[Rfam]
RNA: Small nucleolar RNA SNORD124
Organism: Cariama cristata
RNA sequence: UCCCUCCCUGGAAGGGGUGAUGUGUCAGCACAGAGCCCGAGAUAAGGAUUCUGACUGCAUUUGCCUGUGAUGAAACUUGCUGAGUGCUCUGACCUUCCAUGGUGUGGG
Number, nucleotide and partner (000 for none) at each position: 001u000002c000003c000004c000005u000006c000007c000008c000009u099010g098011g097012a096013a095014g094015g093016g000017g000018u000019g000020a000021u000022g000023u000024g000025u000026c000027a000028g000029c000030a000031c000032a000033g000034a000035g000036c000037c000038c000039g000040a000041g000042a000043u000044a000045a000046g000047g000048a000049u000050u000051c000052u000053g000054a000055c000056u000057g000058c000059a000060u000061u000062u000063g000064c000065c000066u000067g000068u000069g000070a000071u000072g000073a000074a000075a000076c000077u000078u000079g000080c000081u000082g000083a000084g000085u000086g000087c000088u000089c000090u000091g000092a000093c015094c014095u013096u012097c011098c010099a009100u000101g000102g000103u000104g000105u000106g000107g000108g000